The family of this 171-nucleotide RNA from Pontibacter sp. SGAir0037 is "Group II catalytic intron D1-D4-3". The pairing is the family consensus, mapped onto this sequence. It scores 116 bits against the family's covariance model. Lineage of the source: Bacteria > Cytophagia > Cytophagales > Hymenobacteraceae > Pontibacter.

RNA sequence: UUCGUCGUGAGGCGUGCAGUGAAGAAAGCGGGACUGCAAAAUCCGGUACUGACGGACAGAAACUGCAUAAGAGGCAGGGAGUCGUGGGUAAGCAAGCACAUCUUUGUAAAGCCCCUGACCAACAAGCGACUUUGUGUAGAUGCAGCAGGAAUCGGAGGAAGGAAUGUGCUC
Numbered sequence: 001u002u003c004g005u006c007g008u009g010a011g012g013c014g015u016g017c018a019g020u021g022a023a024g025a026a027a028g029c030g031g032g033a034c035u036g037c038a039a040a041a042u043c044c045g046g047u048a049c050u051g052a053c054g055g056a057c058a059g060a061a062a063c064u065g066c067a068u069a070a071g072a073g074g075c076a077g078g079g080a081g082u083c084g085u086g087g088g089u090a091a092g093c094a095a096g097c098a099c100a101u102c103u104u105u106g107u108a109a110a111g112c113c114c115c116u117g118a119c120c121a122a123c124a125a126g127c128g129a130c131u132u133u134g135u136g137u138a139g140a141u142g143c144a145g146c147a148g149g150a151a152u153c154g155g156a157g158g159a160a161g162g163a164a165u166g167u168g169c170u171c
Stems, first nucleotide, its partner, number of pairs: 001016001003014004028171001030169001032167001037162001042156005047150001049148003063145006074137003078133007086114004092107004
Dot-bracket structure: (.((((....)))).)...........(.(.(....(....((((((.(((...........((((((.....(((.(((((((.((((..((((........))))...))))............))))))).)))..))))))))).).))))).....)....).).)